[Rfam]
RNA: Bacterial large subunit ribosomal RNA, nucleotides 10 to 555
Organism: Thermaurantimonas aggregans
RNA sequence: UAGAAAGGGCACACGGAGGAUGCCUAGGCUUCCGGAGGCGAAGAAGGACGUGGCAAGCUGCGAAAAGCUGCGGGGAGCUGCAGGCGAGCGUAGAUCCGCAGAUAUCCGAAUGGGGCAACCCUUCCGCUGAAGGCGGAAAUCCCGCAAGGGAGGCGAACCCGGGGAACUGAAACAUCUAAGUACCCGGAGGAGGAGAAAACAACAGUGAUUCCCUUAGUAGUGGCGAGCGAACGGGGAGGAGCCCAAACCCAUGGUGUUUAGGCACGAUGGGGGUAGUAGGACUGGCAAAGAGUAUGCGCAUUUGAAGCGGAAGCAGUUGGAAUGCUGCGCCGGAGAAGGUGAGAGCCCUGUAUGCGUAGAGAUGCGAUAUACGAGCCAGGAUCCUGAGUAGCGCGGGACACGAGGAAUCCUGUGUGAAUCAGCCGGGACCAUCCGGUAAGGCUAAAUACUCCCGGAAGACCGAUAGUGAACCAGUACCGUGAGGGAAAGGUGAAAAGAACCCUGAGGAAGGGGGUGAAAGAGAACCUGAAACCGUGUGUCUACAAG
Numbered sequence: 001u002a003g004a005a006a007g008g009g010c011a012c013a014c015g016g017a018g019g020a021u022g023c024c025u026a027g028g029c030u031u032c033c034g035g036a037g038g039c040g041a042a043g044a045a046g047g048a049c050g051u052g053g054c055a056a057g058c059u060g061c062g063a064a065a066a067g068c069u070g071c072g073g074g075g076a077g078c079u080g081c082a083g084g085c086g087a088g089c090g091u092a093g094a095u096c097c098g099c100a101g102a103u104a105u106c107c108g109a110a111u112g113g114g115g116c117a118a119c120c121c122u123u124c125c126g127c128u129g130a131a132g133g134c135g136g137a138a139a140u141c142c143c144g145c146a147a148g149g150g151a152g153g154c155g156a157a158c159c160c161g162g163g164g165a166a167c168u169g170a171a172a173c174a175u176c177u178a179a180g181u182a183c184c185c186g187g188a189g190g191a192g193g194a195g196a197a198a199a200c201a202a203c204a205g206u207g208a209u210u211c212c213c214u215u216a217g218u219a220g221u222g223g224c225g226a227g228c229g230a231a232c233g234g235g236g237a238g239g240a241g242c243c244c245a246a247a248c249c250c251a252u253g254g255u256g257u258u259u260a261g262g263c264a265c266g267a268u269g270g271g272g273g274u275a276g277u278a279g280g281a282c283u284g285g286c287a288a289a290g291a292g293u294a295u296g297c298g299c300a301u302u303u304g305a306a307g308c309g310g311a312a313g314c315a316g317u318u319g320g321a322a323u324g325c326u327g328c329g330c331c332g333g334a335g336a337a338g339g340u341g342a343g344a345g346c347c348c349u350g351u352a353u354g355c356g357u358a359g360a361g362a363u364g365c366g367a368u369a370u371a372c373g374a375g376c377c378a379g380g381a382u383c384c385u386g387a388g389u390a391g392c393g394c395g396g397g398a399c400a401c402g403a404g405g406a407a408u409c410c411u412g413u414g415u416g417a418a419u420c421a422g423c424c425g426g427g428a429c430c431a432u433c434c435g436g437u438a439a440g441g442c443u444a445a446a447u448a449c450u451c452c453c454g455g456a457a458g459a460c461c462g463a464u465a466g467u468g469a470a471c472c473a474g475u476a477c478c479g480u481g482a483g484g485g486a487a488a489g490g491u492g493a494a495a496a497g498a499a500c501c502c503u504g505a506g507g508a509a510g511g512g513g514g515u516g517a518a519a520g521a522g523a524a525c526c527u528g529a530a531a532c533c534g535u536g537u538g539u540c541u542a543c544a545a546g
Stems, first nucleotide, its partner, number of pairs: 007541010022526001023490002027461002029458007036450002038154002046107003049062003068101007077089003112121003122138007140151004158189001159187005169176002199206002209446001210237005220228002240443004248271005254265001278385003282379005292372005297366007307355003313328005331335001337349003391415008422437005477484002500512004